[Rfam]
The record is a 114-nucleotide RNA from Clarias magur, which matches "Potassium channel RNA editing signal" in Rfam.
A search with the family's covariance model found it, with a score of 104 bits.
Taxonomically the source falls in Clarias (Eukaryota, Gnathostomata, Actinopteri, Teleostei).
It is annotated as a cis-regulatory element.
From the family's description: This family represents a group of sequences related to the human potassium channel Kv1.1 hairpin element which directs the efficient modification of an adenosine to inosine by an adenosine deaminase acting on RNA (ADAR). The ADAR modification causes an isoleucine/valine recoding event which lies in the ion-conducting pore of the potassium channel. It is thought that this editing event targets the process of fast inactivation and allows a more rapid recovery from inactivation at negative potentials.
The family's consensus secondary structure is taken from published work.
RNA sequence: GUAGGCUAUGGAGACAUGAAGCCCAUAACAGUCGGCGGGAAGAUAGUGGGCUCGCUGUGCGCAAUCGCCGGCGUCCUCACCAUCGCGCUUCCAGUGCCCGUCAUCGUGUCCAAC
Numbered sequence: 001g002u003a004g005g006c007u008a009u010g011g012a013g014a015c016a017u018g019a020a021g022c023c024c025a026u027a028a029c030a031g032u033c034g035g036c037g038g039g040a041a042g043a044u045a046g047u048g049g050g051c052u053c054g055c056u057g058u059g060c061g062c063a064a065u066c067g068c069c070g071g072c073g074u075c076c077u078c079a080c081c082a083u084c085g086c087g088c089u090u091c092c093a094g095u096g097c098c099c100g101u102c103a104u105c106g107u108g109u110c111c112a113a114c
Base pairs, nucleotide, nucleotide: 001114002113004111005110007108008107009106010105011104013102014101015100018097020095037077038076039075040074050062051061